MIR159 microRNA precursor family: a 192-nucleotide sequence from Zea mays.
A search with the family's covariance model found it, with a score of 116 bits.
Lineage of the source: Eukaryota > Streptophyta > Embryophyta > Euphyllophyta > Zea.
RNA sequence: UUCUCUGGAAGAGAGCUCUCUUCAGUCCACUCUGAAAUGGCUGUAGGGUUUCAUUAGCUGCCGACUCAUCCAUUCACCUGCCAAGAACCAUGGACAGGUCUGGUCUUGGUAGCCGAGUGGGUGGCGCGGGAGCUAAAAUCAAGCUCUACGCUGUUUGUGGUUGGACUGAAGGGUGCUCCCUUUUGUUUGCUC
Numbered sequence: 001u002u003c004u005c006u007g008g009a010a011g012a013g014a015g016c017u018c019u020c021u022u023c024a025g026u027c028c029a030c031u032c033u034g035a036a037a038u039g040g041c042u043g044u045a046g047g048g049u050u051u052c053a054u055u056a057g058c059u060g061c062c063g064a065c066u067c068a069u070c071c072a073u074u075c076a077c078c079u080g081c082c083a084a085g086a087a088c089c090a091u092g093g094a095c096a097g098g099u100c101u102g103g104u105c106u107u108g109g110u111a112g113c114c115g116a117g118u119g120g121g122u123g124g125c126g127c128g129g130g131a132g133c134u135a136a137a138a139u140c141a142a143g144c145u146c147u148a149c150g151c152u153g154u155u156u157g158u159g160g161u162u163g164g165a166c167u168g169a170a171g172g173g174u175g176c177u178c179c180c181u182u183u184u185g186u187u188u189g190c191u192c
Stems, first nucleotide, its partner, number of pairs: 013178004018173003023168007036155001058132002061129003067123004075115001